This 73-nucleotide RNA from Trypanosoma theileri belongs to the Rfam family "Trypanosomatid snoRNA TB10cs1H3". The family has 5 seed sequences and 36 matches in Rfam 15.1. The family's consensus secondary structure was predicted with WAR. It scores 80 bits against the family's covariance model.
RNA sequence: CAGUACGCAGGAACGUGGCAGGCUGCGGAGGGUCGCAUCCAUCCCUCACGCGGUUCAACAACAUGAUCCUAGA
Numbered sequence: 001c002a003g004u005a006c007g008c009a010g011g012a013a014c015g016u017g018g019c020a021g022g023c024u025g026c027g028g029a030g031g032g033u034c035g036c037a038u039c040c041a042u043c044c045c046u047c048a049c050g051c052g053g054u055u056c057a058a059c060a061a062c063a064u065g066a067u068c069c070u071a072g073a
Stems, first nucleotide, its partner, number of pairs: 010069003014065004022054005028047005